A member of the RNA family "Glycine riboswitch aptamer" from Pseudoglutamicibacter albus, 115 nucleotides long.

RNA sequence: GCGACCCUGGAAAGCGGAACCUCGCCACCACAGGCUGGUUCCCACCGAUGGUGCAAGCGCAGGACGAACCGUCAACGGCGCGGAAGCUCUCAGGUUCCAAGACAGGGCGGGGAGG
Numbered sequence: 001g002c003g004a005c006c007c008u009g010g011a012a013a014g015c016g017g018a019a020c021c022u023c024g025c026c027a028c029c030a031c032a033g034g035c036u037g038g039u040u041c042c043c044a045c046c047g048a049u050g051g052u053g054c055a056a057g058c059g060c061a062g063g064a065c066g067a068a069c070c071g072u073c074a075a076c077g078g079c080g081c082g083g084a085a086g087c088u089c090u091c092a093g094g095u096u097c098c099a100a101g102a103c104a105g106g107g108c109g110g111g112g113a114g115g
Stems, first nucleotide, its partner, number of pairs: 002110001005107005016042006044095003047091002051089001053087001058082002